[Rfam]
RNA sequence: GCCUCGUGGCCUGGUCCCCACUAUUUGAGAAGAGUCACAUCUCGGAGGUGAGGACCGCCUCGUGGU
Numbered sequence: 001g002c003c004u005c006g007u008g009g010c011c012u013g014g015u016c017c018c019c020a021c022u023a024u025u026u027g028a029g030a031a032g033a034g035u036c037a038c039a040u041c042u043c044g045g046a047g048g049u050g051a052g053g054a055c056c057g058c059c060u061c062g063u064g065g066u
Stems, first nucleotide, its partner, number of pairs: 002065002005062002008059003014055004019050004024046007032038001
Dot-bracket structure: .((.((.(((...((((.((((.(((((((.(.....).))))))))))).)))).))).)).)).
Annotation
A member of the RNA family "mir-1204 microRNA precursor family" from Equus caballus, 66 nucleotides long. The family has 4 seed sequences and 38 matches in Rfam 15.1. Lineage of the source: Eukaryota > Amniota > Theria > Perissodactyla > Equus. Its family is annotated with RISC complex and miRNA-mediated post-transcriptional gene silencing in the Gene Ontology.